The record is a 102-nucleotide sequence from Zingiber officinale, which matches "Small nucleolar RNA SNORD90" in Rfam. The source organism's lineage runs through Eukaryota, Mesangiospermae, Liliopsida, Zingiberaceae and Zingiber. Rfam describes the family as follows. snoRNA HBII-295 belongs to the family of C/D snoRNAs. It is the human orthologue of the mouse MBII-295 and has no identified RNA target. Gene Ontology terms of the family: nucleolus and RNA processing. By type it is a C/D-box small nucleolar RNA.

[Rfam]
RNA sequence: GUCCCAGAUUUUGGGACGAAUAUUGGAUUCGUCCCAGAUUUUGGGACGAAUAUUGGAUUCGUCCCAGAUUUGGGGACGAAUCUAAAAUUCGUCCCAGAUUUG
Numbered sequence: 001g002u003c004c005c006a007g008a009u010u011u012u013g014g015g016a017c018g019a020a021u022a023u024u025g026g027a028u029u030c031g032u033c034c035c036a037g038a039u040u041u042u043g044g045g046a047c048g049a050a051u052a053u054u055g056g057a058u059u060c061g062u063c064c065c066a067g068a069u070u071u072g073g074g075g076a077c078g079a080a081u082c083u084a085a086a087a088u089u090c091g092u093c094c095c096a097g098a099u100u101u102g
Stems, first nucleotide, its partner, number of pairs: 013095009026082007033073002037069001040068002043065001045063006